The record is a 71-nucleotide RNA from Ruminococcus sp. CAG:108, which matches "HDV ribozyme from F. prausnitzii" in Rfam.
RNA sequence: GUUGCUCUGAUAAUCACACACCUCUACGUGGCGAGCAGCAGGCAACGAUCCAUGCUCGGCUAAGUGUGAGA
Numbered sequence: 001g002u003u004g005c006u007c008u009g010a011u012a013a014u015c016a017c018a019c020a021c022c023u024c025u026a027c028g029u030g031g032c033g034a035g036c037a038g039c040a041g042g043c044a045a046c047g048a049u050c051c052a053u054g055c056u057c058g059g060c061u062a063a064g065u066g067u068g069a070g071a
Base pairs, nucleotide, nucleotide: 001039002038003037004036005035006034007033021031022030046058047057048056050054
Record summary: For this family Rfam cites "Widespread occurrence of self-cleaving ribozymes" (Webb et al., Science, 2009). Lineage of the source: Bacteria > Bacillota > Clostridia > Eubacteriales > Ruminococcus.